[Rfam]
RNA sequence: CCAAUAGCGGCCGCUGGCCGGCUGGACUUGUCCGGUUGGUUCACGGCUGGCUACAGCGGGGGAGACAUUUAUCACAGCGUGUCUCAUGCCCGGCCCCGCUGGUUCUGGUUUUGCCUACUCCUGCUCGCUGCAGGGGUAGGCAUCUACCUCCUCCCCAACCGAUGAAGGUUGGGGUAA
Numbered sequence: 001c002c003a004a005u006a007g008c009g010g011c012c013g014c015u016g017g018c019c020g021g022c023u024g025g026a027c028u029u030g031u032c033c034g035g036u037u038g039g040u041u042c043a044c045g046g047c048u049g050g051c052u053a054c055a056g057c058g059g060g061g062g063a064g065a066c067a068u069u070u071a072u073c074a075c076a077g078c079g080u081g082u083c084u085c086a087u088g089c090c091c092g093g094c095c096c097c098g099c100u101g102g103u104u105c106u107g108g109u110u111u112u113g114c115c116u117a118c119u120c121c122u123g124c125u126c127g128c129u130g131c132a133g134g135g136g137u138a139g140g141c142a143u144c145u146a147c148c149u150c151c152u153c154c155c156c157a158a159c160c161g162a163u164g165a166a167g168g169u170u171g172g173g174g175u176a177a
Base pairs, nucleotide, nucleotide: 008049009048010047011046012045013044016041017040018039019038020037021036022035023034024033025032026031055100056099057098058097059096060095061094062085063084064083065082066081067080112142113141114140115139116138117137118136119135120134121133122132123131124130153174154173155172156171157170159168

A member of the RNA family "Hepatitis C virus (HCV) cis-acting replication element (CRE)" from Orthohepacivirus hominis, 177 nucleotides long. Rfam links the family to the GO term viral genome replication. For this family Rfam cites "The Coding Region of the HCV Genome Contains a Network of Regulatory RNA Structures" (Pirakitikulr et al., Mol Cell, 2016). It is one of the family's seed sequences.